[Rfam]
RNA sequence: GCCUUUUCAUCCGAAACGGUGUCAUUCCAGUGCCCAGACACUGGAAUCCAGAAAACUUAACUUUAUACCAGGUAAUAAGAACUGGAUCCCAGUGUCUGGGCACUGGGAUGACAUCCUUCCUAGUGAAGAUU
Numbered sequence: 001g002c003c004u005u006u007u008c009a010u011c012c013g014a015a016a017c018g019g020u021g022u023c024a025u026u027c028c029a030g031u032g033c034c035c036a037g038a039c040a041c042u043g044g045a046a047u048c049c050a051g052a053a054a055a056c057u058u059a060a061c062u063u064u065a066u067a068c069c070a071g072g073u074a075a076u077a078a079g080a081a082c083u084g085g086a087u088c089c090c091a092g093u094g095u096c097u098g099g100g101c102a103c104u105g106g107g108a109u110g111a112c113a114u115c116c117u118u119c120c121u122a123g124u125g126a127a128g129a130u131u
Stems, first nucleotide, its partner, number of pairs: 012125002020113016037096008046087006
RNA: Wolbachia sRNA 46